Rfam assigns this 75-nucleotide RNA from Streptomyces zagrosensis to the family "ASpks TB sRNA". The source organism's lineage runs through Bacteria, Actinomycetes, Kitasatosporales, Streptomycetaceae and Streptomyces. A search with the family's covariance model found it, with a score of 78 bits. By type it is an antisense RNA.
[Rfam]
Nucleotides: 075
Base pairs, nucleotide, nucleotide: 016024017023032070033069038065039064043060044059045058047056049054
Number, partner (000 for none) and nucleotide at each position: 001000c002000u003000u004000c005000a006000g007000g008000g009000a010000g011000c012000c013000c014000a015000a016024c017023c018000a019000c020000a021000a022000c023017g024016g025000c026000c027000g028000u029000u030000c031000a032070u033069c034000u035000g036000g037000g038065c039064g040000g041000c042000c043060u044059u045058g046000g047056c048000c049054g050000u051000a052000c053000g054049u055000c056047g057000c058045c059044a060043a061000c062000a063000g064039c065038g066000c067000c068000u069033g070032g071000g072000c073000c074000u075000c